[Rfam]
RNA sequence: CCGAGGUUCUGGCUUUGAGAACUGAAUUCCAAGGGUAUUCUGUUCACAUUCAGCCCACGGAGUUCAGUUCUUAAGCUUGGAUUCUCCAG
Dot-bracket structure: .......((.(((....((((((((.......((((................)))).......))))))))...))).)).........